[Rfam]
RNA sequence: CUCUUAUUCCGAGCUGGUGGAGGGGCAGGCCCUAUGAAACCCAGCAACCUGCUCAAAGGAUGAGCGAGCGCGAAAUAGCACGCCGCUAUGAUUUUUAGACCAAGUAUGGUCGCUUGAGAAAAGGUGCUAAACCUGAGCAAGGCACAGACCUUGACCGAUAAGAG
Numbered sequence: 001c002u003c004u005u006a007u008u009c010c011g012a013g014c015u016g017g018u019g020g021a022g023g024g025g026c027a028g029g030c031c032c033u034a035u036g037a038a039a040c041c042c043a044g045c046a047a048c049c050u051g052c053u054c055a056a057a058g059g060a061u062g063a064g065c066g067a068g069c070g071c072g073a074a075a076u077a078g079c080a081c082g083c084c085g086c087u088a089u090g091a092u093u094u095u096u097a098g099a100c101c102a103a104g105u106a107u108g109g110u111c112g113c114u115u116g117a118g119a120a121a122a123g124g125u126g127c128u129a130a131a132c133c134u135g136a137g138c139a140a141g142g143c144a145c146a147g148a149c150c151u152u153g154a155c156c157g158a159u160a161a162g163a164g
Stems, first nucleotide, its partner, number of pairs: 001164008013042001016041003022032003026137001029133001043128004048124002050120001052118005138153005
SAM riboswitch aptamer (S box leader): a 164-nucleotide sequence from Bacillus sp. THAF10. It scores 60 bits against the family's covariance model.